[Rfam]
RNA sequence: UGGUCCGGAGAUGCGUAAGUAUUUCCGGAGGUGAUUUUAGAUGGUCGGGCCGCCAUCU
Numbered sequence: 001u002g003g004u005c006c007g008g009a010g011a012u013g014c015g016u017a018a019g020u021a022u023u024u025c026c027g028g029a030g031g032u033g034a035u036u037u038u039a040g041a042u043g044g045u046c047g048g049g050c051c052g053c054c055a056u057c058u
Stems, first nucleotide, its partner, number of pairs: 005028008039058007
A member of the RNA family "nhaA-I RNA", 58 nucleotides long. Rfam's curators write: Acidobacteria, Alphaproteobacteria, Betaproteobacteria and Gammaproteobacteria, Verrucomicrobia, cand. division NC10. The base pairs follow the family's consensus structure, which is taken from published work.